[Rfam]
RNA sequence: UCACCGUGGGUCGGAGUGAGCGGGUCGUUUGACCCAGGAAAGUCCCCGGGCCAUCUCUGCAGAAAUGCAGCCCAGGAAACUGGGAAUGCUUCUUGCAUCGGAUCUUACUGUGCCUGGCGCAGAGGGCUGAGACAGGUGUGGAGCCCCUUGGUCCGGUGGGAAGUAACUUGGCCGAACCUCUACAGUUAUUCACUCAGUUCACAGAAGCCUGUGGACCUACAGAACGGGGCUUAUGACUCAUGGUG
Dot-bracket structure: .(((((((((...((((((..(((((....)))))....[[[.[[[[..........((((....)))).(((((....)))))..(((......((((((...(((........(((.............((....))...)))...))).))))))....)))........................)))))).((((((........)))))).........]]]]]]]....)))))))))
A member of the RNA family "RNase MRP" from Salix viminalis, 245 nucleotides long. It scores 76 bits against the family's covariance model. The base pairs follow the family's consensus structure, which is taken from published work. The source organism's lineage runs through Eukaryota, Viridiplantae, Euphyllophyta, Malpighiales and Salix.